The record is a 100-nucleotide sequence from Williamsoniiplasma luminosum, which matches "PyrR binding site" in Rfam. It scores 57 bits against the family's covariance model. It is annotated as a cis-regulatory element. Taxonomically the source falls in Williamsoniiplasma (Bacteria, Mycoplasmatota, Mollicutes, Entomoplasmatales). Rfam's curators write: This family represents the PyrR binding site and terminator structure.
Nucleotides: 100
Base pairs, nucleotide, nucleotide: 004036005035006034007033008032009031013030016027017026018025039063040062041061042060043059044058045057047055048054049053067092068091069090070089071088072087073086074085075084076083077082
Number, partner (000 for none) and nucleotide at each position: 001000u002000a003000a004036u005035c006034c007033u008032u009031u010000a011000a012000u013030u014000g015000a016027g017026u018025c019000c020000a021000g022000a023000g024000a025018g026017g027016c028000g029000a030013a031009a032008a033007a034006g035005g036004a037000a038000u039063g040062u041061a042060a043059g044058a045057u046000a047055u048054u049053u050000a051000u052000c053049a054048a055047a056000c057045a058044u059043u060042u061041u062040g063039u064000u065000u066000u067092u068091g069090c070089c071088u072087a073086c074085u075084c076083a077082a078000g079000u080000u081000c082077u083076u084075g085074a086073g087072u088071a089070g090069g091068c092067a093000u094000u095000u096000u097000u098000u099000a100000u